Rfam assigns this 129-nucleotide sequence from Lachnospiraceae bacterium MD335 to the family "SAM riboswitch aptamer (S box leader)". NCBI's taxonomy places the organism under Bacteria, Bacillota, Clostridia, Lachnospirales, Lachnospiraceae. A search with the family's covariance model found it, with a score of 73 bits.
RNA sequence: CUCUUAUUCAGAGUGGUGGAGGUACAAAGGACCUGUGAAGCUACGGCAACCCCGUUAUUUGGAGCGGAAGGUGCCAACCUGAGCGAGUUACUGUUUACAUGAAAAUGGCGAUAGUUCGAACAAUAAGAG
Numbered sequence: 001c002u003c004u005u006a007u008u009c010a011g012a013g014u015g016g017u018g019g020a021g022g023u024a025c026a027a028a029g030g031a032c033c034u035g036u037g038a039a040g041c042u043a044c045g046g047c048a049a050c051c052c053c054g055u056u057a058u059u060u061g062g063a064g065c066g067g068a069a070g071g072u073g074c075c076a077a078c079c080u081g082a083g084c085g086a087g088u089u090a091c092u093g094u095u096u097a098c099a100u101g102a103a104a105a106u107g108g109c110g111a112u113a114g115u116u117c118g119a120a121c122a123a124u125a126a127g128a129g
Stems, first nucleotide, its partner, number of pairs: 001129008013044005021033003030080001045075004050071002052067004084118006

From the family's description: The SAM riboswitch is found upstream of a number of genes which code for proteins involved in methionine or cysteine biosynthesis in Gram-positive bacteria. The SAM riboswitch acts at the level of transcription termination control. The predicted structure consists of a complex stem-loop region followed by a single stem loop terminator region. An alternative and mutually exclusive form involves bases in the 3' segment of helix 1 with those in the 5' region of helix 5 to form a structure termed the anti-terminator form. This entry represents the conserved core of the complex structure involving helices 1-4.